[Rfam]
Nucleotides: 046
Stems, first nucleotide, its partner, number of pairs: 001020008033045005
Number, partner (000 for none) and nucleotide at each position: 001020c002019c003018u004017g005016g006015g007014g008013u009000u010000g011000a012000a013008a014007c015006c016005u017004c018003a019002g020001g021000c022000u023000a024000u025000u026000c027000u028000c029000u030000a031000u032000c033045g034044u035043c036042c037041c038000u039000u040000c041037g042036g043035g044034a045033c046000u
Rfam assigns this 46-nucleotide sequence from Candidatus Magnetoglobus multicellularis to the family "Acido-Lenti-1 RNA". The base pairs follow the family's consensus structure, which is taken from published work.